[Rfam]
RNA sequence: CGGACAGGGGGGUUCCUGCCGUCCGGCGGGGCCUGUCCGAACCGGUCGCGCAGAAGCGUGCCCAGUGGUUGUCGCUCGGGGGUGAUCGCCG
Numbered sequence: 001c002g003g004a005c006a007g008g009g010g011g012g013u014u015c016c017u018g019c020c021g022u023c024c025g026g027c028g029g030g031g032c033c034u035g036u037c038c039g040a041a042c043c044g045g046u047c048g049c050g051c052a053g054a055a056g057c058g059u060g061c062c063c064a065g066u067g068g069u070u071g072u073c074g075c076u077c078g079g080g081g082g083u084g085a086u087c088g089c090c091g
Stems, first nucleotide, its partner, number of pairs: 001039008014031007044063002047060005
che1 RNA: a 91-nucleotide RNA from Streptomyces fulvorobeus. It is annotated as a small RNA. The organism belongs to Streptomyces, within Bacteria.